A member of the RNA family "ZMP/ZTP riboswitch aptamer (pfl RNA motif)" from Paenibacillus arenilitoris, 80 nucleotides long. A search with the family's covariance model found it, with a score of 58 bits.
RNA sequence: ACCGGCAUGCGCGACUGGCGUAACGCGGAUAACCGCGAGGGAACGCAUGCUGAGCAGUGCCGUACGCCUGGGCCAAGCAU
Numbered sequence: 001a002c003c004g005g006c007a008u009g010c011g012c013g014a015c016u017g018g019c020g021u022a023a024c025g026c027g028g029a030u031a032a033c034c035g036c037g038a039g040g041g042a043a044c045g046c047a048u049g050c051u052g053a054g055c056a057g058u059g060c061c062g063u064a065c066g067c068c069u070g071g072g073c074c075a076a077g078c079a080u
Stems, first nucleotide, its partner, number of pairs: 003052009015040002017068005025036004059073003
Dot-bracket structure: ..(((((((((...(([[[[[...((((....))))..))...)))))))))......(((..]]]]]..))).......